[Rfam]
Notes: A member of the RNA family "c-di-GMP-I riboswitch aptamer" from Paenibacillus sp. OAS669, 85 nucleotides long.
RNA sequence: AAUCGAUAAUGGCAAACUUGCCGAAAGGCAGGGACGCAAAGCCACAGGCCUAAAGGAGCAUUCCUAUGGCGGCUGGGUUACCGAA
Number, nucleotide and partner (000 for none) at each position: 001a000002a000003u000004c000005g000006a000007u000008a000009a000010u000011g000012g037013c036014a000015a000016a000017c032018u031019u030020g029021c028022c027023g000024a000025a000026a000027g022028g021029c020030a019031g018032g017033g000034a000035c000036g013037c012038a000039a000040a079041g078042c077043c076044a000045c075046a074047g073048g070049c069050c068051u000052a000053a000054a000055g064056g063057a062058g000059c000060a000061u000062u057063c056064c055065u000066a000067u000068g050069g049070c048071g000072g000073c047074u046075g045076g043077g042078u041079u040080a000081c000082c000083g000084a000085a000

About this RNA: It scores 86 bits against the family's covariance model. The base pairs follow the family's consensus structure, which is taken from published work.